[Rfam]
RNA sequence: CUCCGAGCCGUGUCAAUCGGACACGACGGCGAUGGCGAAUACGGGGGUUUUUCCGAUUUCUCCCCGUAGCCAACGAAAUGGCAGGCGAGCGCUUCACCCGUCCGGCUC
Numbered sequence: 001c002u003c004c005g006a007g008c009c010g011u012g013u014c015a016a017u018c019g020g021a022c023a024c025g026a027c028g029g030c031g032a033u034g035g036c037g038a039a040u041a042c043g044g045g046g047g048u049u050u051u052u053c054c055g056a057u058u059u060c061u062c063c064c065c066g067u068a069g070c071c072a073a074c075g076a077a078a079u080g081g082c083a084g085g086c087g088a089g090c091g092c093u094u095c096a097c098c099c100g101u102c103c104g105g106c107u108c
Stems, first nucleotide, its partner, number of pairs: 006107004011023004025102005034093004040068007069082003
The record is a 108-nucleotide RNA sequence from a Sphingomonadales bacterium, which matches "Rhizobiales sRNA Atu_At1" in Rfam. On this family, see Wilms et al., RNA Biol 2012: "Deep sequencing uncovers numerous small RNAs on all four replicons of the plant pathogen Agrobacterium tumefaciens".